[Rfam]
A member of the RNA family "U5 spliceosomal RNA" from Mesorhabditis spiculigera, 119 nucleotides long. The family's consensus secondary structure is taken from published work. The family has 180 seed sequences and 28,527 matches in Rfam 15.1. A search with the family's covariance model found it, with a score of 90 bits. The literature on the family includes a 1997 paper in Nucleic Acids Res by Zwieb, "The uRNA database". Its family is annotated with U5 snRNP and spliceosomal tri-snRNP complex assembly in the Gene Ontology.

RNA sequence: UACCUCUGGUUCGUGUGCAUUUGACCGAGAAAAUCUUUCGCCUUUUACUAAAGAUUUCCGUGCACACGAACAAUUAUGAGUAUUAAAUAAUUUUUGGAGCCCCCUCGACAGAGCGGGGC
Numbered sequence: 001u002a003c004c005u006c007u008g009g010u011u012c013g014u015g016u017g018c019a020u021u022u023g024a025c026c027g028a029g030a031a032a033a034u035c036u037u038u039c040g041c042c043u044u045u046u047a048c049u050a051a052a053g054a055u056u057u058c059c060g061u062g063c064a065c066a067c068g069a070a071c072a073a074u075u076a077u078g079a080g081u082a083u084u085a086a087a088u089a090a091u092u093u094u095u096g097g098a099g100c101c102c103c104c105u106c107g108a109c110a111g112a113g114c115g116g117g118g119c
Stems, first nucleotide, its partner, number of pairs: 004080003009071011031057008100118004105113001